Annotation:
The family of this 145-nucleotide sequence from Carpinus fangiana is "small nucleolar RNA snoR134". The source organism's lineage runs through Eukaryota, Viridiplantae, fabids, Fagales and Carpinus. Rfam classes the family as an H/ACA-box small nucleolar RNA. The family has 5 seed sequences and 792 matches in Rfam 15.1. The base pairs follow the family's consensus structure, which was predicted with RNAalifold.
[Rfam]
RNA sequence: CAGCAUGAUUCACCCCCGAGCUUCUAUGAGGUUGUCAAUGAUGAUGAAAGCCCCAUUGCCUGUGCCAACCGACGCUGUUUACUGCUGCAGUUCAGCUCUUCUUUUCUCACCAUGGCUGAGCAAUGUCAAAUCAACAACCACAUCU
Numbered sequence: 001c002a003g004c005a006u007g008a009u010u011c012a013c014c015c016c017c018g019a020g021c022u023u024c025u026a027u028g029a030g031g032u033u034g035u036c037a038a039u040g041a042u043g044a045u046g047a048a049a050g051c052c053c054c055a056u057u058g059c060c061u062g063u064g065c066c067a068a069c070c071g072a073c074g075c076u077g078u079u080u081a082c083u084g085c086u087g088c089a090g091u092u093c094a095g096c097u098c099u100u101c102u103u104u105u106c107u108c109a110c111c112a113u114g115g116c117u118g119a120g121c122a123a124u125g126u127c128a129a130a131u132c133a134a135c136a137a138c139c140a141c142a143u144c145u
Stems, first nucleotide, its partner, number of pairs: 003065005011058001018053001020051003023047002025044001074138001076136004083128002086125002090121002095116003

It scores 41 bits against the family's covariance model.